The record is a 68-nucleotide RNA from Otolemur garnettii, which matches "Small nucleolar RNA Z40" in Rfam. It is annotated as a C/D-box small nucleolar RNA. Lineage of the source: Eukaryota > Metazoa > Craniata > Boreoeutheria > Otolemur. Gene Ontology terms of the family: nucleolus and RNA processing.
Nucleotides: 068
Base pairs, nucleotide, nucleotide: 002067004065005064006063
Number, partner (000 for none) and nucleotide at each position: 001000u002067g003000a004065u005064g006063u007000u008000a009000u010000g011000a012000u013000g014000a015000u016000g017000g018000c019000u020000a021000a022000a023000a024000u025000g026000u027000u028000c029000a030000g031000c032000u033000g034000c035000u036000c037000u038000g039000a040000a041000u042000g043000g044000a045000c046000u047000g048000a049000a050000u051000a052000u053000a054000g055000c056000c057000u058000u059000c060000u061000g062000a063006a064005c065004a066000c067002u068000g